[Rfam]
RNA: Ribosomal protein L20 leader
RNA sequence: GAGCAAAAGAAGAAGCACCCGCUUCUCACCUGAUCGACGCUAAAAGUGUUUGACUAAAAAGAACCUACUUGAAUCUUUUUAGCGCCCUUAUGAGCAGUUGCCAGGUUUGUGAUGUUGAGAUAUACAUGUGGGUGCGUUCGUGCGCCCACAUUUUUUAUUUGUG
Numbered sequence: 001g002a003g004c005a006a007a008a009g010a011a012g013a014a015g016c017a018c019c020c021g022c023u024u025c026u027c028a029c030c031u032g033a034u035c036g037a038c039g040c041u042a043a044a045a046g047u048g049u050u051u052g053a054c055u056a057a058a059a060a061g062a063a064c065c066u067a068c069u070u071g072a073a074u075c076u077u078u079u080u081a082g083c084g085c086c087c088u089u090a091u092g093a094g095c096a097g098u099u100g101c102c103a104g105g106u107u108u109g110u111g112a113u114g115u116u117g118a119g120a121u122a123u124a125c126a127u128g129u130g131g132g133u134g135c136g137u138u139c140g141u142g143c144g145c146c147c148a149c150a151u152u153u154u155u156u157a158u159u160u161g162u163g
Stems, first nucleotide, its partner, number of pairs: 011026006028106003036099003039095002127150010